[Rfam]
RNA sequence: UGCAGGGUAAUUAAUCGGCACGGGCGAAGAGGUUUCCUCUCCGCCCGUGCUCGCAUGUUAAGGGGCUGAAAAAACCA
Number, nucleotide and partner (000 for none) at each position: 001u000002g000003c017004a000005g015006g000007g000008u000009a000010a000011u000012u000013a000014a000015u005016c000017g003018g050019c049020a048021c047022g046023g045024g044025c043026g042027a000028a040029g039030a038031g037032g000033u000034u000035u000036c000037c031038u030039c029040u028041c000042c026043g025044c024045c023046c022047g021048u020049g019050c018051u000052c000053g000054c000055a000056u000057g000058u000059u000060a000061a000062g000063g000064g000065g000066c000067u000068g000069a000070a000071a000072a000073a000074a000075c000076c000077a000

tpke11: a 77-nucleotide RNA sequence from Enterobacter sp. 638. By type it is a small RNA. For this family Rfam cites "Computational identification of noncoding RNAs in E. coli by comparative genomics" (Rivas et al., Curr Biol, 2001). The base pairs follow the family's consensus structure, which was predicted with WAR. NCBI's taxonomy places the organism under Bacteria, Pseudomonadota, Gammaproteobacteria, Enterobacteriaceae, Enterobacter. Rfam describes the family as follows. In Yersinia located in ICR upstream dnaJ (chaperone)gene. Rfam links the family to the GO term response to temperature stimulus.